RNA sequence: GGAUUCCCGCCGAGUAAGAAUUAGCCAUUCGCUCGUAGCGAGUCUUGGAGGAUUAAAGGUAACUUUAAUCUUUAAGCGUAGACAGUGAGGUAGCGGGCCGAAAGCCAUAUGGUUGAAGGGAUUGAGCUCCAUAAACGUUAGUAAACCGAGAGGGCUGAUGCCUUACCUGCGUGCAGAAAGCAACAUUUUAUCCUUUGUUAAAGGCAAGAAGGAUAAAACCUCU
Dot-bracket structure: ..........((((...(((([.[[.)))).))))..((..(((((((((((((((((....)))))))))))...)).)))).))..............................................................((((((((..(((...........)))...)))....(((((((((((.......]].]))))))))))))))))
The family of this 223-nucleotide sequence from Niallia taxi is "Group II catalytic intron D1-D4-6".
The family has 174 seed sequences and 1,617 matches in Rfam 15.1.
The match comes from Rfam's covariance-model search (126 bits).